Annotation
drum RNA: a 117-nucleotide RNA.
[Rfam]
RNA sequence: UGUCGGUAAACGUGUACUGUUUGGUCAGACAGGUGGUACACGUUGACUAUAUCGGGUUGUGCAUUCCACCGUCACUCUGAAUUAGAAUGUAUAUGACAUUGAACGAAAAUGCUCUAA
Numbered sequence: 001u002g003u004c005g006g007u008a009a010a011c012g013u014g015u016a017c018u019g020u021u022u023g024g025u026c027a028g029a030c031a032g033g034u035g036g037u038a039c040a041c042g043u044u045g046a047c048u049a050u051a052u053c054g055g056g057u058u059g060u061g062c063a064u065u066c067c068a069c070c071g072u073c074a075c076u077c078u079g080a081a082u083u084a085g086a087a088u089g090u091a092u093a094u095g096a097c098a099u100u101g102a103a104c105g106a107a108a109a110u111g112c113u114c115u116a117a
Base pairs, nucleotide, nucleotide: 002047003046004045012041013040014039015038016037017036018035019034020033021032022031023030025080026079027078028077061112062111063110085100086099088098089097090096
Dot-bracket structure: .(((.......((((((((((((.[[[[.))))))))))))...))).............(((.............]]]]....((.(((.....))))).........))).....
Notes
Rfam describes the family as follows. Firmicutes, Bacteroidetes (1 example), Proteobacteria (2 examples), Spirochaetes (2 examples).